[Rfam]
RNA sequence: UUAAGCCUUCGCUUGCACAGAAUCAACGCCGCGGCUGAUUUAUUAUUAAUGUGUUUAAGCAAAUUCA
Numbered sequence: 001u002u003a004a005g006c007c008u009u010c011g012c013u014u015g016c017a018c019a020g021a022a023u024c025a026a027c028g029c030c031g032c033g034g035c036u037g038a039u040u041u042a043u044u045a046u047u048a049a050u051g052u053g054u055u056u057a058a059g060c061a062a063a064u065u066c067a
Base pairs, nucleotide, nucleotide: 001067003065008063009062011060012059013058014057015054016053017052018051019050020041021040022039023038024037025036
Dot-bracket structure: (.(....((.(((((((((((((((..........))))))........)))))..)))).)).).)